[Rfam]
The family of this 81-nucleotide sequence from Crocodylus porosus is "Mammalian CPEB3 ribozyme". The mammalian CPEB3 ribozyme is a self cleaving RNA located in the second intron of the CPEB3 gene which belongs to a family of genes regulating messenger RNA polyadenylation. This ribozyme is highly conserved and found only in mammals. The CPEB3 ribozyme is structurally and biochemically related to the human hepatitis delta virus (HDV) ribozyme and the HDV ribozyme is proposed to have arisen from the human transcriptome.
RNA sequence: AGAGGUCACAAGUCAUGAGGCCGUAGGAGAAGCACUCAUGGAACGGCCUGUCAGAUUCCAACGAAAUCUGCAAAUUCUGCU
Numbered sequence: 001a002g003a004g005g006u007c008a009c010a011a012g013u014c015a016u017g018a019g020g021c022c023g024u025a026g027g028a029g030a031a032g033c034a035c036u037c038a039u040g041g042a043a044c045g046g047c048c049u050g051u052c053a054g055a056u057u058c059c060a061a062c063g064a065a066a067u068c069u070g071c072a073a074a075u076u077c078u079g080c081u
Stems, first nucleotide, its partner, number of pairs: 019048004025081002028078004032044001052070006
A search with the family's covariance model found it, with a score of 36 bits.
Pairs were carried over by alignment from the consensus structure, which is taken from published work.